[Rfam]
RNA sequence: AUAACCUUUAAAUGAGUCCAGAGAGGCUUAAAAGGUCGGACAGAUUGAAACAGCAGGUUUCUCCUGUGAUUUUUUGUGCGACCUUGCCAUAUGGUGAGGUUUUUUUGAU
Numbered sequence: 001a002u003a004a005c006c007u008u009u010a011a012a013u014g015a016g017u018c019c020a021g022a023g024a025g026g027c028u029u030a031a032a033a034g035g036u037c038g039g040a041c042a043g044a045u046u047g048a049a050a051c052a053g054c055a056g057g058u059u060u061c062u063c064c065u066g067u068g069a070u071u072u073u074u075u076g077u078g079c080g081a082c083c084u085u086g087c088c089a090u091a092u093g094g095u096g097a098g099g100u101u102u103u104u105u106u107g108a109u
Stems, first nucleotide, its partner, number of pairs: 004036006013030006043074002047070001050067004055062002078103001080101009

This 109-nucleotide sequence from Streptococcus thermophilus belongs to the Rfam family "PyrR binding site". Pairs were carried over by alignment from the consensus structure, which is taken from published work. This family represents the PyrR binding site and terminator structure. This RNA structure is found upstream of a variety of genes involved in pyrimidine biosynthesis and transport. The alignment also includes a portion of the antiterminator structure. Lineage of the source: Bacteria > Bacillota > Bacilli > Streptococcus > Streptococcus thermophilus.